A member of the RNA family "ALIL pseudoknot" from Segniliparus rotundus, 132 nucleotides long. The family's RNA type in Rfam is cis-regulatory element. The base pairs follow the family's consensus structure, which is taken from published work. A reference for the family is Mazauric et al. (2008), "Apical loop-internal loop RNA pseudoknots: a new type of stimulator of -1 translational frameshifting in bacteria", J Biol Chem. It scores 60 bits against the family's covariance model.
RNA sequence: GUCGUCUUUCUUCGCGCGGGAGCUCGACCCGCGACUUCCGAGGUGAUCCGGUUCGUGGACGCGAACCGGGAGCGGUUCGGGGUCGAGCCGGUCUGCCGGGUGCUCAAAGGGCACGGCGUGAAGAUCGCCCCG
Numbered sequence: 001g002u003c004g005u006c007u008u009u010c011u012u013c014g015c016g017c018g019g020g021a022g023c024u025c026g027a028c029c030c031g032c033g034a035c036u037u038c039c040g041a042g043g044u045g046a047u048c049c050g051g052u053u054c055g056u057g058g059a060c061g062c063g064a065a066c067c068g069g070g071a072g073c074g075g076u077u078c079g080g081g082g083u084c085g086a087g088c089c090g091g092u093c094u095g096c097c098g099g100g101u102g103c104u105c106a107a108a109g110g111g112c113a114c115g116g117c118g119u120g121a122a123g124a125u126c127g128c129c130c131c132g
Stems, first nucleotide, its partner, number of pairs: 016032005078132005089127002092124003096120001